[Rfam]
RNA sequence: AUAAAGGGCUUCUGCCGUGCGUGGCACGGGGGGGCCCCGCGGCCGCCCCCGCGGAAUCGACAUCAAGAGAUUUCGGAAGCACAAUUUUUGCAGUGGGAGCAAGUCUUAUGAGGAGCGGCUGA
Number, nucleotide and partner (000 for none) at each position: 001a000002u000003a000004a000005a000006g000007g000008g080009c079010u078011u077012c076013u026014g025015c024016c023017g022018u000019g000020c000021g000022u017023g016024g015025c014026a013027c051028g050029g049030g048031g047032g046033g000034g044035c000036c042037c041038c000039g000040c000041g037042g036043c000044c034045g000046c032047c031048c030049c029050c028051g027052c075053g074054g073055a072056a071057u070058c069059g000060a000061c000062a000063u000064c000065a000066a000067g000068a000069g058070a057071u056072u055073u054074c053075g052076g012077a011078a010079g009080c008081a000082c000083a000084a000085u000086u000087u000088u000089u000090g000091c000092a000093g000094u000095g000096g000097g000098a120099g119100c118101a000102a000103g116104u114105c113106u112107u111108a000109u000110g000111a107112g106113g105114a104115g000116c103117g000118g100119c099120u098121g000122a000

The record is a 122-nucleotide RNA sequence from Thalassarche chlororhynchos, which matches "U11 spliceosomal RNA" in Rfam. The match comes from Rfam's covariance-model search (79 bits). The literature on the family includes a 1988 paper in Proc Natl Acad Sci U S A by Montzka and Steitz, "Additional low-abundance human small nuclear ribonucleoproteins: U11, U12, etc". The family's consensus secondary structure is taken from published work. The family's RNA type in Rfam is spliceosomal small nuclear RNA.